Source information
This 87-nucleotide sequence from Paenalicyclobacillus mengziensis belongs to the Rfam family "c-di-GMP-I riboswitch aptamer". The base pairs follow the family's consensus structure, which is taken from published work. Gene Ontology term of the family: cyclic-di-GMP binding. NCBI's taxonomy places the organism under Bacteria, Bacillati, Bacillota, Alicyclobacillaceae, Paenalicyclobacillus. From the family's description: GEMM was predicted in a large-scale screen for bacterial structured RNA regulatory elements.
RNA sequence: GGUGAAAAAAGGUAAACCGCUCCGAAAGGACGGGACACAAAGCCGUGGGGCUACAGCACUGUAUGCUAUGCCUGCCAGGUUGCCGCU
Number, nucleotide and partner (000 for none) at each position: 001g000002g000003u000004g000005a000006a000007a000008a000009a000010a000011g000012g038013u037014a000015a000016a000017c033018c032019g031020c000021u030022c029023c028024g000025a000026a000027a000028g023029g022030a021031c019032g018033g017034g000035a000036c000037a013038c012039a000040a000041a081042g080043c079044c078045g000046u077047g076048g075049g072050g071051c070052u000053a000054c000055a000056g066057c065058a064059c000060u000061g000062u000063a000064u058065g057066c056067u000068a000069u000070g051071c050072c049073u000074g000075c048076c047077a046078g044079g043080u042081u041082g000083c000084c000085g000086c000087u000